[Rfam]
RNA: Bacterial large subunit ribosomal RNA, nucleotides 1399 to 1866
Organism: Cryptosporangium arvum
RNA sequence: GAAUGACGGGUGAGAAACCCGUCCGCCGAAUGACCAAGGGUUCCUGGGCCAGGCUAAUCCGCCCAGGGUGAGUCGGGACCUAAGGCGAGGCCGACAGGCGUAGUCGAUGGACAACGGGUUGAUAUUCCCGUACCCGCGAAGGAUCGCCCAUGAUGAACCUACUUUGUGCUAACCACCCAAGCCGGCCGAUUCCUUCGGGAAGGAGCUGGGGAGGCUGGGAUCCCGGGUGGUAGUAGUCAAGCGAUGGGGUGACGCAGGAAGGUAGCUCAUCCCGGUGAAUGGUGGUGCCGGGCUAAGGGUGUAGGACGAGGCAUUGGUAAAUCCGUGCUUCAUAUAGUCUGAGACCUGAUGGGGAGCCGUUGUGGCGAAGUGAGUGAUCCUAUGCUGCCGAGAAAAGCCUCUAGCGAGAUCCGAGCGGCCCGUACCCUAAACCGACACAGGUGGUCAGGUAGAGAAUACCAAGGCGAU
Numbered sequence: 001g002a003a004u005g006a007c008g009g010g011u012g013a014g015a016a017a018c019c020c021g022u023c024c025g026c027c028g029a030a031u032g033a034c035c036a037a038g039g040g041u042u043c044c045u046g047g048g049c050c051a052g053g054c055u056a057a058u059c060c061g062c063c064c065a066g067g068g069u070g071a072g073u074c075g076g077g078a079c080c081u082a083a084g085g086c087g088a089g090g091c092c093g094a095c096a097g098g099c100g101u102a103g104u105c106g107a108u109g110g111a112c113a114a115c116g117g118g119u120u121g122a123u124a125u126u127c128c129c130g131u132a133c134c135c136g137c138g139a140a141g142g143a144u145c146g147c148c149c150a151u152g153a154u155g156a157a158c159c160u161a162c163u164u165u166g167u168g169c170u171a172a173c174c175a176c177c178c179a180a181g182c183c184g185g186c187c188g189a190u191u192c193c194u195u196c197g198g199g200a201a202g203g204a205g206c207u208g209g210g211g212a213g214g215c216u217g218g219g220a221u222c223c224c225g226g227g228u229g230g231u232a233g234u235a236g237u238c239a240a241g242c243g244a245u246g247g248g249g250u251g252a253c254g255c256a257g258g259a260a261g262g263u264a265g266c267u268c269a270u271c272c273c274g275g276u277g278a279a280u281g282g283u284g285g286u287g288c289c290g291g292g293c294u295a296a297g298g299g300u301g302u303a304g305g306a307c308g309a310g311g312c313a314u315u316g317g318u319a320a321a322u323c324c325g326u327g328c329u330u331c332a333u334a335u336a337g338u339c340u341g342a343g344a345c346c347u348g349a350u351g352g353g354g355a356g357c358c359g360u361u362g363u364g365g366c367g368a369a370g371u372g373a374g375u376g377a378u379c380c381u382a383u384g385c386u387g388c389c390g391a392g393a394a395a396a397g398c399c400u401c402u403a404g405c406g407a408g409a410u411c412c413g414a415g416c417g418g419c420c421c422g423u424a425c426c427c428u429a430a431a432c433c434g435a436c437a438c439a440g441g442u443g444g445u446c447a448g449g450u451a452g453a454g455a456a457u458a459c460c461a462a463g464g465c466g467a468u
Base pairs, nucleotide, nucleotide: 005023006022007021008020009019010018024466025465026464027463032446033445034444035443038426039425043067044066045065046064047063048062052060053059074422075421076420077419079110080109084105085104086103088101090099091098092097114131115130116129117128118127134418135417136416137415141412142411143410144409241405242404246401247400248399249398250397254388255387256386257385260381261380262379265375266374267373268372269371271292272291273290274289275288276287293352294351297347298346299345300344304340305339306338308331309330310329311328312327313326314325316324317323356366357365358364359363432441433440448460449459450458451457